[Rfam]
Shown here is a 150-nucleotide RNA sequence from Pomacea canaliculata, a member of the family "Small nucleolar RNA SNORA79".
Rfam classes the family as an H/ACA-box small nucleolar RNA.
It scores 56 bits against the family's covariance model.
On this family, see Schattner et al., RNA 2006: "A computational screen for mammalian pseudouridylation guide H/ACA RNAs".
Its family is annotated with nucleolus and RNA processing in the Gene Ontology.
Rfam describes the family as follows. ACA65 (SNORA79) is a member of the H/ACA class of snoRNAs that guide the sites of modification of uridines to pseudouridines. This snoRNA was identified by computational screening and its expression in mouse experimentally verified by Northern blot and primer extension analysis.
Lineage of the source: Eukaryota > Opisthokonta > Mollusca > Architaenioglossa > Pomacea.
RNA sequence: UGAUGGCGUCUCCCUGUGUGUUUAUCAGCAUAAACACAUAGUUUUAUGCCAUCAGAGAAGAAGAUGCAGUUUCUUCAUCUUUUGCCCCAGACAUGCAUAUUUUGUGCAAUGUCAGCCAUGGGGUGGAAGGAUUUGCGGACUGCUACAAAA
Numbered sequence: 001u002g003a004u005g006g007c008g009u010c011u012c013c014c015u016g017u018g019u020g021u022u023u024a025u026c027a028g029c030a031u032a033a034a035c036a037c038a039u040a041g042u043u044u045u046a047u048g049c050c051a052u053c054a055g056a057g058a059a060g061a062a063g064a065u066g067c068a069g070u071u072u073c074u075u076c077a078u079c080u081u082u083u084g085c086c087c088c089a090g091a092c093a094u095g096c097a098u099a100u101u102u103u104g105u106g107c108a109a110u111g112u113c114a115g116c117c118a119u120g121g122g123g124u125g126g127a128a129g130g131a132u133u134u135g136c137g138g139a140c141u142g143c144u145a146c147a148a149a150a
Stems, first nucleotide, its partner, number of pairs: 001054008014041005020035004067142006079129010